[Rfam]
RNA sequence: AACCCAAAAGGACCGUUGCGGCAGCGGGGGAACCACCUUCGCUUCACCGGCCGACAGGCCGCGAAGCUCGGGGCUAAGUUCCAAGCCGGAACCGGGCAACUCCAGCUCGAGCCCGACAGCUCACCCCGUAGGUAAUGGAGGAGAACUUU
Dot-bracket structure: .(((...................((((((....(...................................)(((.....((((.....))))..((((.......))))...))).........)))))).)))................
RNA: c-di-AMP riboswitch aptamer (ydaO/yuaA leader)
Organism: Brevibacterium luteolum